[Rfam]
RNA sequence: AUGCAAUGAUGAGCGAAGUAUCGCCUGACCUGGUAUGGCCGUCCCUCCUGUCGGCUUUGACCAGGGCGUGAUCACUCAAUCUUCUCUCUGAGCUA
Numbered sequence: 001a002u003g004c005a006a007u008g009a010u011g012a013g014c015g016a017a018g019u020a021u022c023g024c025c026u027g028a029c030c031u032g033g034u035a036u037g038g039c040c041g042u043c044c045c046u047c048c049u050g051u052c053g054g055c056u057u058u059g060a061c062c063a064g065g066g067c068g069u070g071a072u073c074a075c076u077c078a079a080u081c082u083u084c085u086c087u088c089u090g091a092g093c094u095a
Base pairs, nucleotide, nucleotide: 001094003093004092038055039054040053041052

Z30 small nucleolar RNA: a 95-nucleotide sequence from Phyllostomus discolor. The family's consensus secondary structure was predicted with PFOLD. On this family, see Galardi et al., Mol Cell Biol 2002: "Purified box C/D snoRNPs are able to reproduce site-specific 2'-O-methylation of target RNA in vitro". Gene Ontology terms of the family: RNA processing and nucleolus. Rfam 15.1 lists 802 matches to the family in 647 species. The family's RNA type in Rfam is C/D-box small nucleolar RNA. The match comes from Rfam's covariance-model search (100 bits).